[Rfam]
RNA sequence: GCCCUAUUGACAGCUAAAGACUGGCAUCCGAUAGCGAGAUCGGGUAGGGU
Numbered sequence: 001g002c003c004c005u006a007u008u009g010a011c012a013g014c015u016a017a018a019g020a021c022u023g024g025c026a027u028c029c030g031a032u033a034g035c036g037a038g039a040u041c042g043g044g045u046a047g048g049g050u
Stems, first nucleotide, its partner, number of pairs: 001050007011023002019035001025038001028043005
RNA: DUF2693-FD RNA